[Rfam]
This 68-nucleotide RNA sequence from Alligator mississippiensis belongs to the Rfam family "Mammalian CPEB3 ribozyme". The match comes from Rfam's covariance-model search (40 bits). NCBI's taxonomy places the organism under Eukaryota, Bilateria, Chordata, Vertebrata, Alligator.

RNA sequence: AGUCACAAAUUUGAGGCCAUAGCAAAAGUGCUUACAGCACGGCCCUGUCAGAAUCUGCCAGUUCUGCU
Numbered sequence: 001a002g003u004c005a006c007a008a009a010u011u012u013g014a015g016g017c018c019a020u021a022g023c024a025a026a027a028g029u030g031c032u033u034a035c036a037g038c039a040c041g042g043c044c045c046u047g048u049c050a051g052a053a054u055c056u057g058c059c060a061g062u063u064c065u066g067c068u
Base pairs, nucleotide, nucleotide: 013045015044016043017042018041021068022067023066024065026063027062028040029039030038049057050056051055